[Rfam]
Shown here is a 136-nucleotide RNA from Amphiprion ocellaris, a member of the family "Small nucleolar RNA SNORA8".
Gene Ontology terms of the family: RNA processing and nucleolus.
Lineage of the source: Eukaryota > Euteleostomi > Actinopteri > Euacanthomorphacea > Amphiprion.
About the family: ACA8 is a member of the H/ACA class of snoRNA that guide the sites of modification of uridines to pseudouridines.
Rfam 15.1 lists 1,490 matches to the family in 610 species.
It is annotated as an H/ACA-box small nucleolar RNA.

RNA sequence: AGCACUGUGGUAUCUGCAGCCAGUUGGGUCAUCAGCUGGUUUGUUCAAAAGCCAGUGCUAGAUCAAGUCAACAUCUGGCAUUGUUGGUCUCCAUGCUGCCUGUGUUUGGAGUCCUGGUAUAUGUAUUGAAACAAGG
Numbered sequence: 001a002g003c004a005c006u007g008u009g010g011u012a013u014c015u016g017c018a019g020c021c022a023g024u025u026g027g028g029u030c031a032u033c034a035g036c037u038g039g040u041u042u043g044u045u046c047a048a049a050a051g052c053c054a055g056u057g058c059u060a061g062a063u064c065a066a067g068u069c070a071a072c073a074u075c076u077g078g079c080a081u082u083g084u085u086g087g088u089c090u091c092c093a094u095g096c097u098g099c100c101u102g103u104g105u106u107u108g109g110a111g112u113c114c115u116g117g118u119a120u121a122u123g124u125a126u127u128g129a130a131a132c133a134a135g136g
Stems, first nucleotide, its partner, number of pairs: 002058006013051001015049001016044004021039001022037005062124002066120001068117003077106005